A member of the RNA family "Small nucleolar RNA SNORD20" from Otolemur garnettii, 78 nucleotides long. NCBI's taxonomy places the organism under Eukaryota, Vertebrata, Theria, Primates, Otolemur. U20 is a C/D box small nucleolar RNA that is encoded in intron 11 of the nucleolin gene in human, mouse and rat.
[Rfam]
RNA sequence: UGGAUAUGAUGACUGAUUACCUGAAAAAUAAUUGAUGAACUCCAGAAAAUUUUGAAAAAAUGAAGAAGUGAAAUCCAG
Numbered sequence: 001u002g003g004a005u006a007u008g009a010u011g012a013c014u015g016a017u018u019a020c021c022u023g024a025a026a027a028a029u030a031a032u033u034g035a036u037g038a039a040c041u042c043c044a045g046a047a048a049a050u051u052u053u054g055a056a057a058a059a060a061u062g063a064a065g066a067a068g069u070g071a072a073a074u075c076c077a078g
Stems, first nucleotide, its partner, number of pairs: 001077004
Its family is annotated with RNA processing and nucleolus in the Gene Ontology. On this family, see Nicoloso et al., Mol Cell Biol 1994: "U20, a novel small nucleolar RNA, is encoded in an intron of the nucleolin gene in mammals". Pairs were carried over by alignment from the consensus structure. The family's RNA type in Rfam is C/D-box small nucleolar RNA.